[Rfam]
RNA sequence: UAGGCGGAUAUCGAAAAGCCUUAAUAGAGUAGAUA
Number, nucleotide and partner (000 for none) at each position: 001u000002a021003g020004g019005c018006g000007g000008a000009u000010a034011u033012c032013g000014a000015a000016a000017a000018g005019c004020c003021u002022u000023a000024a000025u000026a000027g000028a000029g000030u000031a000032g012033a011034u010035a000
A member of the RNA family "DUF805b RNA", 35 nucleotides long.